[Rfam]
RNA sequence: GGCCUAACCCCACAGCAUUUAAUGCUCUGGGUAAGGCCGUAAAUCGCUGGACACAAGAAACCCCACCGUUAGGGCGUGUUCAGCGUUGUAUGGAGAAAUCUAUACAGAGGCGCAAGCCUU
Numbered sequence: 001g002g003c004c005u006a007a008c009c010c011c012a013c014a015g016c017a018u019u020u021a022a023u024g025c026u027c028u029g030g031g032u033a034a035g036g037c038c039g040u041a042a043a044u045c046g047c048u049g050g051a052c053a054c055a056a057g058a059a060a061c062c063c064c065a066c067c068g069u070u071a072g073g074g075c076g077u078g079u080u081c082a083g084c085g086u087u088g089u090a091u092g093g094a095g096a097a098a099u100c101u102a103u104a105c106a107g108a109g110g111c112g113c114a115a116g117c118c119u120u
Base pairs, nucleotide, nucleotide: 001038002037003036004035009031010030011029012028014026015025016024017023045085046084047083048082049081050080051079052078053077054076062074063073064072087106088105089104090103091102092101093100094099107120108119109118110117111116